[Rfam]
Small nucleolar RNA U54: an 84-nucleotide RNA from Marchantia polymorpha. The family's consensus secondary structure was predicted with PFOLD. The family has 21 seed sequences and 614 matches in Rfam 15.1. Rfam links the family to the GO terms nucleolus and RNA processing. U54 is a C/D box small nucleolar RNA, which acts as a methylation guide for 18S ribosomal RNA in plants. The literature on the family includes a 2003 paper in Nucleic Acids Res by Chen et al., "The high diversity of snoRNAs in plants: identification and comparative study of 120 snoRNA genes from Oryza sativa".

RNA sequence: AGCUUGGUGAUGCACUACGUCACUUAGACAAUAUACGCUAUACUGAGCCACUUGGCUCUGCGGAUAAAGUUUGUUCUGAAAGCU
Numbered sequence: 001a002g003c004u005u006g007g008u009g010a011u012g013c014a015c016u017a018c019g020u021c022a023c024u025u026a027g028a029c030a031a032u033a034u035a036c037g038c039u040a041u042a043c044u045g046a047g048c049c050a051c052u053u054g055g056c057u058c059u060g061c062g063g064a065u066a067a068a069g070u071u072u073g074u075u076c077u078g079a080a081a082g083c084u
Base pairs, nucleotide, nucleotide: 001084002083003082004081005080